The record is a 63-nucleotide sequence from Bombyx mori, which matches "mir-2774 microRNA precursor family" in Rfam.
[Rfam]
RNA sequence: ACAUCAUUCGGACCGUCGGUCUACCGAUUCACCCGCUCGGUGGAAGAUCUUUCCUUUCGUCGU
Number, nucleotide and partner (000 for none) at each position: 001a000002c000003a000004u000005c059006a000007u000008u000009c000010g054011g053012a052013c000014c000015g048016u047017c046018g000019g000020u044021c043022u042023a041024c040025c039026g038027a037028u000029u000030c000031a000032c000033c000034c000035g000036c000037u027038c026039g025040g024041u023042g022043g021044a020045a000046g017047a016048u015049c000050u000051u000052u012053c011054c010055u000056u000057u000058c000059g005060u000061c000062g000063u000
Annotation:
On this family, see Liu et al., BMC Genomics 2010: "MicroRNAs of Bombyx mori identified by Solexa sequencing".